RNA sequence: UGGCCACCCGCACCACAUGCGGAAGAAUGAAUGUUGGAAUGGAGAGUCCU
Numbered sequence: 001u002g003g004c005c006a007c008c009c010g011c012a013c014c015a016c017a018u019g020c021g022g023a024a025g026a027a028u029g030a031a032u033g034u035u036g037g038a039a040u041g042g043a044g045a046g047u048c049c050u
Stems, first nucleotide, its partner, number of pairs: 002049002008042003013037003019034003
Norovirus cis-acting replication element (CRE): a 50-nucleotide sequence from Norovirus norwalkense. The family's RNA type in Rfam is cis-regulatory element. Pairs were carried over by alignment from the consensus structure, which is taken from published work. The literature on the family includes a 2009 paper in BMC Res Notes by Victoria et al., "Phylogenetic prediction of cis-acting elements: a cre-like sequence in Norovirus genome?".